[Rfam]
Overview
The record is a 118-nucleotide sequence from Paenibacillus albilobatus, which matches "azaaromatic riboswitch aptamer (yjdF RNA)" in Rfam. Taxonomically the source falls in Paenibacillus (Bacteria, Bacillati, Bacilli, Paenibacillaceae).

RNA sequence: GAAGUAGAGCGCAAAAACACGGUCCGGUUGGUAGUCCGGGCGCACGGGGCGGCCAGCGCGCGCCGAUCCGUGUCAGUAACCUUCCCCCCUCGGGAUGUCCGGCGUUCUGAUUUUGAAC
Numbered sequence: 001g002a003a004g005u006a007g008a009g010c011g012c013a014a015a016a017a018c019a020c021g022g023u024c025c026g027g028u029u030g031g032u033a034g035u036c037c038g039g040g041c042g043c044a045c046g047g048g049g050c051g052g053c054c055a056g057c058g059c060g061c062g063c064c065g066a067u068c069c070g071u072g073u074c075a076g077u078a079a080c081c082u083u084c085c086c087c088c089c090u091c092g093g094g095a096u097g098u099c100c101g102g103c104g105u106u107c108u109g110a111u112u113u114u115g116a117a118c
Stems, first nucleotide, its partner, number of pairs: 005109007022041006042073006083095004